[Rfam]
RNA sequence: AACCGGUCGUUGCGAUAGUAAUCUUGCUCAGUACGAGAGGAACCGCAAGUUCGGACAUUUGGUUCACGCACUCGGUCGAGAGGCCGGUGGUGCGAAGCUACCAUCCGUCGGAUUACGCCUGAACGCCUCUAAGGCAGAAUCCGCGCUAGUCAUGGUUGCAACGAUAACUCGAGGAGUCCCGCGAGCUGAAAGGCUCGAACCUGACACUGCUCAGGCCCGCGCGCACCGUCAGGCGCGCGCGGGUCGACCGCCCCUUCGCCGCUCGGGGAACCACGUGUCGCGCACGGGCUAUGCCCUGCCUGCGCGCGUCUCCUCAAGCGGUCGACCAUGGGUGCACAUAUCCAGCGUCGGGACUCGGAAUCGUCUGUAGACGACUUUCGUACCAAGCGGGGUGUUGUACUCGGUAGAGCAGUUACCACGCUGCGAUCUGUUGAGACUCAUCCCUCGCUCGGAGGAUUCGU
Number, nucleotide and partner (000 for none) at each position: 001a000002a000003c000004c000005g000006g165007u164008c163009g162010u161011u160012g159013c158014g000015a000016u148017a147018g146019u145020a000021a051022u000023c049024u048025u047026g046027c045028u000029c000030a000031g000032u000033a000034c000035g000036a000037g000038a000039g000040g000041a000042a000043c000044c000045g027046c026047a025048a024049g023050u000051u021052c107053g106054g105055a104056c000057a000058u000059u000060u100061g099062g098063u000064u000065c000066a000067c094068g093069c092070a091071c090072u087073c086074g085075g084076u083077c082078g000079a000080g000081a000082g077083g076084c075085c074086g073087g072088u000089g000090g071091u070092g069093c068094g067095a000096a000097g000098c062099u061100a060101c000102c000103a000104u055105c054106c053107g052108u000109c143110g142111g141112a000113u000114u000115a000116c000117g135118c134119c133120u132121g000122a000123a000124c000125g000126c000127c000128u000129c000130u000131a000132a120133g119134g118135c117136a000137g000138a000139a000140u000141c111142c110143g109144c000145g019146c018147u017148a016149g000150u000151c000152a000153u000154g000155g000156u000157u000158g013159c012160a011161a010162c009163g008164a007165u006166a000167a000168c000169u000170c000171g000172a000173g000174g000175a000176g354177u353178c352179c351180c350181g349182c000183g000184a000185g000186c000187u000188g000189a000190a000191a000192g000193g000194c000195u000196c000197g000198a000199a000200c000201c000202u000203g000204a000205c000206a000207c000208u000209g000210c000211u000212c000213a000214g000215g000216c000217c000218c000219g000220c000221g000222c000223g000224c000225a000226c000227c000228g000229u000230c000231a000232g000233g000234c000235g000236c000237g000238c000239g000240c000241g000242g000243g000244u000245c000246g000247a000248c000249c000250g000251c000252c000253c000254c000255u000256u000257c000258g000259c000260c000261g000262c000263u000264c000265g000266g000267g000268g000269a000270a000271c000272c000273a000274c000275g000276u000277g000278u000279c000280g000281c000282g000283c000284a000285c000286g000287g000288g000289c000290u000291a000292u000293g000294c000295c000296c000297u000298g000299c000300c000301u000302g000303c000304g000305c000306g000307c000308g000309u000310c000311u000312c000313c000314u000315c000316a000317a000318g000319c000320g000321g000322u000323c000324g000325a000326c000327c000328a000329u000330g000331g000332g000333u000334g000335c000336a000337c000338a000339u000340a000341u000342c000343c000344a000345g000346c000347g000348u000349c181350g180351g179352g178353a177354c176355u000356c000357g000358g459359a458360a457361u456362c455363g379364u000365c000366u000367g375368u000369a000370g000371a000372c000373g000374a000375c367376u000377u000378u000379c363380g000381u000382a000383c000384c451385a000386a449387g448388c447389g446390g444391g443392g442393u000394g437395u436396u000397g000398u000399a000400c000401u000402c430403g429404g428405u000406a427407g000408a000409g424410c423411a422412g421413u420414u000415a000416c000417c000418a000419c000420g413421c412422u411423g410424c409425g000426a000427u406428c404429u403430g402431u000432u000433g000434a000435g000436a395437c394438u000439c000440a000441u000442c392443c391444c390445u000446c389447g388448c387449u386450c000451g384452g000453a000454g000455g362456a361457u360458u359459c358460g000461u000
The family of this 461-nucleotide part of an RNA from Cloeon dipterum is "Eukaryotic large subunit ribosomal RNA". Rfam 15.1 lists 107,465 matches to the family in 2,616 species. A search with the family's covariance model found it, with a score of 2876 bits.